[Rfam]
RNA sequence: GGAAUCCCCGUCGAGAAAGAACUAGCCAUUCGCUCGUAGCGAGUCUUGGACGGCAAAUGGUAACAUUUGCCCUUAAGCGUAGACAGCGAGGUGAUGGGCCGUAAGCCAAGCGGUUGAAGGGAUUGAGCUCCGAAAUUCGUGCUUUCAGGAAGGUCGAUAUGCUCAGGAGCAUAGAAGGCAACAUUGCUAUGAUCGACAAGGCAAGAUCAUAACAGCUUCCUCGGAGUCGGUGACCU
Dot-bracket structure: ...........((((...(((.[.[[..))).))))..((..((((((((.((((((((....)))))))).))...)).)))).))....................................((.((((((..............(((((((((..((((........))))...)))....(((.(((((((......]].]))))))).)))))))))))))))).)......

This 236-nucleotide sequence from Lentibacillus sp. JNUCC-1 belongs to the Rfam family "Group II catalytic intron D1-D4-6". Group II introns are found in rRNA, tRNA and mRNA of organelles in fungi, plants and protists, and also in mRNA in bacteria. The organism belongs to Lentibacillus, within Bacteria. It scores 160 bits against the family's covariance model. The family has 174 seed sequences and 1,617 matches in Rfam 15.1.